Rfam assigns this 141-nucleotide sequence from Prolemur simus to the family "Small nucleolar RNA SNORA4". Pairs were carried over by alignment from the consensus structure, which was predicted with PFOLD. About the family: ACA4 is a member of the H/ACA class of snoRNA that guide the sites of modification of uridines to pseudouridines. The organism belongs to Prolemur, within Eukaryota. Rfam classes the family as an H/ACA-box small nucleolar RNA. Rfam 15.1 lists 290 matches to the family in 136 species.

RNA sequence: UUACCAAAAGGUAAUUUGGUGGGGGAGAGGUUGCUAAAAUAACCUUUACCAGCUUGGGCUAUUUGGAAGAAUAAAGAAAUAUUCUCUCCACAGUGGCCUAGACAACAUAGUGUAAUUUACUACUAUUUUAUGGACUACAUU
Numbered sequence: 001u002u003a004c005c006a007a008a009a010g011g012u013a014a015u016u017u018g019g020u021g022g023g024g025g026a027g028a029g030g031u032u033g034c035u036a037a038a039a040u041a042a043c044c045u046u047u048a049c050c051a052g053c054u055u056g057g058g059c060u061a062u063u064u065g066g067a068a069g070a071a072u073a074a075a076g077a078a079a080u081a082u083u084c085u086c087u088c089c090a091c092a093g094u095g096g097c098c099u100a101g102a103c104a105a106c107a108u109a110g111u112g113u114a115a116u117u118u119a120c121u122a123c124u125a126u127u128u129u130a131u132g133g134a135c136u137a138c139a140u141u
Stems, first nucleotide, its partner, number of pairs: 004066005012061002015058003021054002025050001028047001029044004078136001082132001092121005099114002102111002